[Rfam]
RNA sequence: UAAUAAGGGCAGAAGGCGGAUGCCUUGGCACCAGGAGUCGAUGAAGGACGUGGUAAGCUGCGAUAAGCCUCGGGGAGAUGCAAGCAAUCUUUGAUCCGGGGAUUUCCGAAUGGGGAAACCUACUUAGGUUAAUACCUAAGUAUCUAUUACUCAAUCAAUAGGUAAUAGAAGACAUACCAGGGGAACUGAAACAUCUAAGUACCCUGAGGAAGAGAAAGAAAAAUCGAUUCCCUAAGUAGCGGCGAGCGAAAGGGGAUAAGCCCAAACCGAUAGGGUUUUCUCUAUCGGGGUUGCGGACCGGUCAUAUAUGAUGACUCAUCGUAAUAGAAGAGGUUUGGAAAGACUCACCAUAGAAGGUAAUAGUCCUGUACAUGAAACGAUGAUAUUCUAGACCGUGAUCCAGAGUACCACGAGGCACGUGAAACCUUGUGGGAAGCAGGGGGGACCACCCCCCAAGGCUAAAUACUACCUGGUGACCGAUAGCGCAUAGUACCGUGAGGGAAAGGUGAAAAGAACCCCGGAAGGGGAGUGAAAUAGAACCUGAAACCUUCUGCUUACAAA
Numbered sequence: 001u002a003a004u005a006a007g008g009g010c011a012g013a014a015g016g017c018g019g020a021u022g023c024c025u026u027g028g029c030a031c032c033a034g035g036a037g038u039c040g041a042u043g044a045a046g047g048a049c050g051u052g053g054u055a056a057g058c059u060g061c062g063a064u065a066a067g068c069c070u071c072g073g074g075g076a077g078a079u080g081c082a083a084g085c086a087a088u089c090u091u092u093g094a095u096c097c098g099g100g101g102a103u104u105u106c107c108g109a110a111u112g113g114g115g116a117a118a119c120c121u122a123c124u125u126a127g128g129u130u131a132a133u134a135c136c137u138a139a140g141u142a143u144c145u146a147u148u149a150c151u152c153a154a155u156c157a158a159u160a161g162g163u164a165a166u167a168g169a170a171g172a173c174a175u176a177c178c179a180g181g182g183g184a185a186c187u188g189a190a191a192c193a194u195c196u197a198a199g200u201a202c203c204c205u206g207a208g209g210a211a212g213a214g215a216a217a218g219a220a221a222a223a224u225c226g227a228u229u230c231c232c233u234a235a236g237u238a239g240c241g242g243c244g245a246g247c248g249a250a251a252g253g254g255g256a257u258a259a260g261c262c263c264a265a266a267c268c269g270a271u272a273g274g275g276u277u278u279u280c281u282c283u284a285u286c287g288g289g290g291u292u293g294c295g296g297a298c299c300g301g302u303c304a305u306a307u308a309u310g311a312u313g314a315c316u317c318a319u320c321g322u323a324a325u326a327g328a329a330g331a332g333g334u335u336u337g338g339a340a341a342g343a344c345u346c347a348c349c350a351u352a353g354a355a356g357g358u359a360a361u362a363g364u365c366c367u368g369u370a371c372a373u374g375a376a377a378c379g380a381u382g383a384u385a386u387u388c389u390a391g392a393c394c395g396u397g398a399u400c401c402a403g404a405g406u407a408c409c410a411c412g413a414g415g416c417a418c419g420u421g422a423a424a425c426c427u428u429g430u431g432g433g434a435a436g437c438a439g440g441g442g443g444g445a446c447c448a449c450c451c452c453c454c455a456a457g458g459c460u461a462a463a464u465a466c467u468a469c470c471u472g473g474u475g476a477c478c479g480a481u482a483g484c485g486c487a488u489a490g491u492a493c494c495g496u497g498a499g500g501g502a503a504a505g506g507u508g509a510a511a512a513g514a515a516c517c518c519c520g521g522a523a524g525g526g527g528a529g530u531g532a533a534a535u536a537g538a539a540c541c542u543g544a545a546a547c548c549u550u551c552u553g554c555u556u557a558c559a560a561a
Base pairs, nucleotide, nucleotide: 007556008555009554010553011552012551013550014549015548016547022541023506024505027478028477029475030474031473032472033471034470035469036467037466038172039171046107047106048105049062050061051060068101069100070099071098072097073096074095077089078088079087112121113120114119122141123140124139125138126137127136128135143169144168145167146166147165148164149163150162151161177208178206179205180204181203182202188195189194218225219224228463229256230255231254232253233252239247240246259460260459261458262457267288268287269286270285271284272283273282295401296400299395300394301393302392310389313386316383317382318381319380320379321378322377324373325372330346332345333344334343335342349353355367356366357365408432409431410430411429412428413427414426415425439454440453441452442451443450493500494499516527517526518525519524
Rfam assigns this 561-nucleotide part of an RNA from Alkaliphilus sp. B6464 to the family "Bacterial large subunit ribosomal RNA". It scores 2989 bits against the family's covariance model. Taxonomically the source falls in Alkaliphilus (Bacteria, Bacillati, Clostridia, Peptostreptococcales).